[Rfam]
Shown here is a 53-nucleotide RNA, a member of the family "Streptococcus sRNA SpF59 (ldcC RNA)". The literature on the family includes a 2012 paper in PLoS Pathog by Mann et al., "Control of virulence by small RNAs in Streptococcus pneumoniae".
RNA sequence: UGACCGCUCCCGCUGGGGGCUGAGGCUACACGGGCGGCCGGGUCAGAUGCCGA
Numbered sequence: 001u002g003a004c005c006g007c008u009c010c011c012g013c014u015g016g017g018g019g020c021u022g023a024g025g026c027u028a029c030a031c032g033g034g035c036g037g038c039c040g041g042g043u044c045a046g047a048u049g050c051c052g053a
Stems, first nucleotide, its partner, number of pairs: 001045005006020006